[Rfam]
RNA sequence: UGGAUCAGUGAUGUGAUUUCUGGGGUAUAUGAAUCAAGAACUUUGAUUAAACCCUAACACUGAGGUCUAU
Numbered sequence: 001u002g003g004a005u006c007a008g009u010g011a012u013g014u015g016a017u018u019u020c021u022g023g024g025g026u027a028u029a030u031g032a033a034u035c036a037a038g039a040a041c042u043u044u045g046a047u048u049a050a051a052c053c054c055u056a057a058c059a060c061u062g063a064g065g066u067c068u069a070u
Stems, first nucleotide, its partner, number of pairs: 002068005
Dot-bracket structure: .(((((.........................................................)))))..